[Rfam]
RNA sequence: UGGUGCCCAACGUGGGGCCUGGAUACCGGGGGACAUUGUGAGGGACAUGACGAAAGAAGAAGGGGUGCACACCCGCUCAAAUAGUUCAGAGACAUCGCGGUAGCCUGCUGUGACUGAGCCGACAGGUAAGUUGGUCGUUAAUCAUGGGGCGAGAAUUAAGUCAGCAUCAGAAAUAUGUGAUACAGUUGAGAGAAGUUUUACAGGCAAGAGGAGUAAAGUUUACAACUGAGGAUUUAUUUUGUUCCUUUGAUUUCGUGAAAGACAUCUGCCCAU
Numbered sequence: 001u002g003g004u005g006c007c008c009a010a011c012g013u014g015g016g017g018c019c020u021g022g023a024u025a026c027c028g029g030g031g032g033a034c035a036u037u038g039u040g041a042g043g044g045a046c047a048u049g050a051c052g053a054a055a056g057a058a059g060a061a062g063g064g065g066u067g068c069a070c071a072c073c074c075g076c077u078c079a080a081a082u083a084g085u086u087c088a089g090a091g092a093c094a095u096c097g098c099g100g101u102a103g104c105c106u107g108c109u110g111u112g113a114c115u116g117a118g119c120c121g122a123c124a125g126g127u128a129a130g131u132u133g134g135u136c137g138u139u140a141a142u143c144a145u146g147g148g149g150c151g152a153g154a155a156u157u158a159a160g161u162c163a164g165c166a167u168c169a170g171a172a173a174u175a176u177g178u179g180a181u182a183c184a185g186u187u188g189a190g191a192g193a194a195g196u197u198u199u200a201c202a203g204g205c206a207a208g209a210g211g212a213g214u215a216a217a218g219u220u221u222a223c224a225a226c227u228g229a230g231g232a233u234u235u236a237u238u239u240u241g242u243u244c245c246u247u248u249g250a251u252u253u254c255g256u257g258a259a260a261g262a263c264a265u266c267u268g269c270c271c272a273u
Base pairs, nucleotide, nucleotide: 006031007030008029012026013025014024036050037049038048039047085124086122087121093116094115096112097111098110099109100108132152134150135149138147139146140145157200158199159198160196161195208248209247210246211245213243217235218234220232221231258273261270263268